A member of the RNA family "Bacterial small signal recognition particle RNA" from a Parachlamydiaceae bacterium, 99 nucleotides long.
Lineage of the source: Bacteria > Pseudomonadati > Chlamydiota > Parachlamydiales > Parachlamydiaceae.
Rfam's curators write: The signal recognition particle (SRP) is a universally conserved ribonucleoprotein involved in the co-translational targeting of proteins to membranes.
A search with the family's covariance model found it, with a score of 47 bits.
The family is grouped with related families in Rfam's "SRP clan".

RNA sequence: GCCGGGGACCUUGUGGAAUGAAAUAGUUCGAACCAGGUCAGGACAGGAAUGUAGCAGCCUUAAGGAUGAUGUUCAUGCCUUGAGACAAUCUCCGGCACU
Numbered sequence: 001g002c003c004g005g006g007g008a009c010c011u012u013g014u015g016g017a018a019u020g021a022a023a024u025a026g027u028u029c030g031a032a033c034c035a036g037g038u039c040a041g042g043a044c045a046g047g048a049a050u051g052u053a054g055c056a057g058c059c060u061u062a063a064g065g066a067u068g069a070u071g072u073u074c075a076u077g078c079c080u081u082g083a084g085a086c087a088a089u090c091u092c093c094g095g096c097a098c099u
Stems, first nucleotide, its partner, number of pairs: 004093005010084004015079001018076005024068002027065002035060004043052003